[Rfam]
RNA sequence: GCAGCGUUGUGUGCACAGUUUCCCAUCUGUGUCUGGUGGUAGGGUCUAUGUGUGUUUUGCAUGUAGACUCUACUGCUCACACAAAACCUGUGGCCAGAGAUGAACUUGAGAUCAUAGUACUGGUCUAGUGAUGUCUGAAGGACGAGCCUCCCACUGACCAGCCUCCACACUCUCAAACAUCU
Numbered sequence: 001g002c003a004g005c006g007u008u009g010u011g012u013g014c015a016c017a018g019u020u021u022c023c024c025a026u027c028u029g030u031g032u033c034u035g036g037u038g039g040u041a042g043g044g045u046c047u048a049u050g051u052g053u054g055u056u057u058u059g060c061a062u063g064u065a066g067a068c069u070c071u072a073c074u075g076c077u078c079a080c081a082c083a084a085a086a087c088c089u090g091u092g093g094c095c096a097g098a099g100a101u102g103a104a105c106u107u108g109a110g111a112u113c114a115u116a117g118u119a120c121u122g123g124u125c126u127a128g129u130g131a132u133g134u135c136u137g138a139a140g141g142a143c144g145a146g147c148c149u150c151c152c153a154c155u156g157a158c159c160a161g162c163c164u165c166c167a168c169a170c171u172c173u174c175a176a177a178c179a180u181c182u
Stems, first nucleotide, its partner, number of pairs: 013091003030083003034079003037075006044068005051061003107175005120161006127155004132146001133143003

Overview: Small nucleolar RNA SNORA23: a 182-nucleotide RNA from Ptilonorhynchus violaceus. The family's RNA type in Rfam is H/ACA-box small nucleolar RNA. The source organism's lineage runs through Eukaryota, Opisthokonta, Theropoda, Neoaves and Ptilonorhynchus. Rfam's curators write: The members of this family belong to the H/ACA class of snoRNAs which are thought to guide the sites of modification of uridines to pseudouridines. For this family Rfam cites "RNomics: an experimental approach that identifies 201 candidates for novel, small, non-messenger RNAs in mouse" (Huttenhofer et al., EMBO J, 2001).